[Rfam]
RNA sequence: GCCUUAUCAAGAGAGGUGGAGGGACUGGCCCGAUGAAGCCCGGCAACCGAUGGCUGUGCCAUAAAGGUGCCAAUUCCUGCGGAAUGGUUACAUUCUGGUAGAUGAGGU
Numbered sequence: 001g002c003c004u005u006a007u008c009a010a011g012a013g014a015g016g017u018g019g020a021g022g023g024a025c026u027g028g029c030c031c032g033a034u035g036a037a038g039c040c041c042g043g044c045a046a047c048c049g050a051u052g053g054c055u056g057u058g059c060c061a062u063a064a065a066g067g068u069g070c071c072a073a074u075u076c077c078u079g080c081g082g083a084a085u086g087g088u089u090a091c092a093u094u095c096u097g098g099u100a101g102a103u104g105a106g107g108u
Base pairs, nucleotide, nucleotide: 001108002107003106004105005104006103007102008101013041015040016039017038021031022030023029025079027077028076042071043070044069045068047067048066050062051061052060075100080097081096082095083094084093085092
RNA: SAM riboswitch aptamer (S box leader)